[Rfam]
RNA: Eukaryotic large subunit ribosomal RNA, nucleotides 3031 to 3456
RNA sequence: UAGGUAGUAUUUUCUGGAGUAAUUUAAUAGAAGUGUAACUCAGUACGAGAGGAACCGUUACAUCAUGCCUCUGGAUUAUUCAAUUAUUUGACCAAGUAGUGUUGACAAUCUAACCCAUGUUAAAAUAAUGGCUGAAAGCCUCUCAAGCCAGAAUUUUGCCUAAAACUGACUACUCUACCAAUUUUUACUGACAAAUUUUCAUAAAAUAAUUUGAAAAACACACUUAAAAUUAAAAUUAUAGGCUAUCCUUAACGAUUUUUUUUCUUGAGAUACCUAUUUCUAUCAUAUACCAACCGAAAAUUUUGUUAAUCAUGAUAGACGAUCAACAUUUACAACGGAGGUUUGUAAGUGUAUAAGUUUCUUGUUGGAUUUUGUUCUGAAUUUGUUACGAGCCACUGAGAAUUUUCUCUCGUUGGGGAAAAAGGU
Dot-bracket structure: .................((((.((...(((..(((((((.................)))))))((((....(((.....((((((((((....))))))..))))....)))...))))..(((....(((((............)))))....)))..))).....)).)))).....(((((((.............................................................................................................)))))))...((..(..(((.......))).......((((((((.((.....(((..(..((..(.......................)..))..).)))....))....))).)))))....)..))..
Numbered sequence: 001u002a003g004g005u006a007g008u009a010u011u012u013u014c015u016g017g018a019g020u021a022a023u024u025u026a027a028u029a030g031a032a033g034u035g036u037a038a039c040u041c042a043g044u045a046c047g048a049g050a051g052g053a054a055c056c057g058u059u060a061c062a063u064c065a066u067g068c069c070u071c072u073g074g075a076u077u078a079u080u081c082a083a084u085u086a087u088u089u090g091a092c093c094a095a096g097u098a099g100u101g102u103u104g105a106c107a108a109u110c111u112a113a114c115c116c117a118u119g120u121u122a123a124a125a126u127a128a129u130g131g132c133u134g135a136a137a138g139c140c141u142c143u144c145a146a147g148c149c150a151g152a153a154u155u156u157u158g159c160c161u162a163a164a165a166c167u168g169a170c171u172a173c174u175c176u177a178c179c180a181a182u183u184u185u186u187a188c189u190g191a192c193a194a195a196u197u198u199u200c201a202u203a204a205a206a207u208a209a210u211u212u213g214a215a216a217a218a219c220a221c222a223c224u225u226a227a228a229a230u231u232a233a234a235a236u237u238a239u240a241g242g243c244u245a246u247c248c249u250u251a252a253c254g255a256u257u258u259u260u261u262u263u264c265u266u267g268a269g270a271u272a273c274c275u276a277u278u279u280c281u282a283u284c285a286u287a288u289a290c291c292a293a294c295c296g297a298a299a300a301u302u303u304u305g306u307u308a309a310u311c312a313u314g315a316u317a318g319a320c321g322a323u324c325a326a327c328a329u330u331u332a333c334a335a336c337g338g339a340g341g342u343u344u345g346u347a348a349g350u351g352u353a354u355a356a357g358u359u360u361c362u363u364g365u366u367g368g369a370u371u372u373u374g375u376u377c378u379g380a381a382u383u384u385g386u387u388a389c390g391a392g393c394c395a396c397u398g399a400g401a402a403u404u405u406u407c408u409c410u411c412g413u414u415g416g417g418g419a420a421a422a423a424g425g426u
Stems, first nucleotide, its partner, number of pairs: 018174004023169002028162003033063007064119004072112003080105004084099006122157003129150005180302007306424002310420001313325003333415005338409003342402002349396003354392001357389002361385001